Notes: MIR2600 microRNA precursor family: an 85-nucleotide sequence from Medicago truncatula. Gene Ontology terms of the family: RISC complex and miRNA-mediated post-transcriptional gene silencing.
RNA sequence: GUGACAUUGGCCAAUCACAAUGCCACAAUGUUUGUGUUUCUCUCUCUUUCACAAGCAUUGUGGCAUUGUGAUUGGCCAAUGUCAC
Numbered sequence: 001g002u003g004a005c006a007u008u009g010g011c012c013a014a015u016c017a018c019a020a021u022g023c024c025a026c027a028a029u030g031u032u033u034g035u036g037u038u039u040c041u042c043u044c045u046c047u048u049u050c051a052c053a054a055g056c057a058u059u060g061u062g063g064c065a066u067u068g069u070g071a072u073u074g075g076c077c078a079a080u081g082u083c084a085c
Stems, first nucleotide, its partner, number of pairs: 001085036